[Rfam]
RNA sequence: GGCUUAUCCAGAAAGGUGGAGGGACAUGGCCCUAUGAAACCUUAGCAACCUGGUCUAUCGACUAAGGUGCUAAUUCCUGUUCCCGCAACAAAGAAGCGGGAAAUAGAUGAGUG
Numbered sequence: 001g002g003c004u005u006a007u008c009c010a011g012a013a014a015g016g017u018g019g020a021g022g023g024a025c026a027u028g029g030c031c032c033u034a035u036g037a038a039a040c041c042u043u044a045g046c047a048a049c050c051u052g053g054u055c056u057a058u059c060g061a062c063u064a065a066g067g068u069g070c071u072a073a074u075u076c077c078u079g080u081u082c083c084c085g086c087a088a089c090a091a092a093g094a095a096g097c098g099g100g101a102a103a104u105a106g107a108u109g110a111g112u113g
Stems, first nucleotide, its partner, number of pairs: 002112007013043005021032003028077002044071004049067002052062001054060001075105001080102006
Dot-bracket structure: .(((((((....(((((...(((....[[)))......)))))((((.((.(.(.....).)...))))))...(]]..((((((...........))))))..)))))))).
A member of the RNA family "SAM riboswitch aptamer (S box leader)" from Phaeocystidibacter luteus, 113 nucleotides long.
Pairs were carried over by alignment from the consensus structure, which is taken from published work.
A search with the family's covariance model found it, with a score of 84 bits.